[Rfam]
RNA: L19-Flavobacteria ribosomal protein leader
RNA sequence: UUACCUCUGGAGAAUAUCUUGAAUGUUA
Numbered sequence: 001u002u003a004c005c006u007c008u009g010g011a012g013a014a015u016a017u018c019u020u021g022a023a024u025g026u027u028a
Base pairs, nucleotide, nucleotide: 001028003026004025008023010020011019012018013017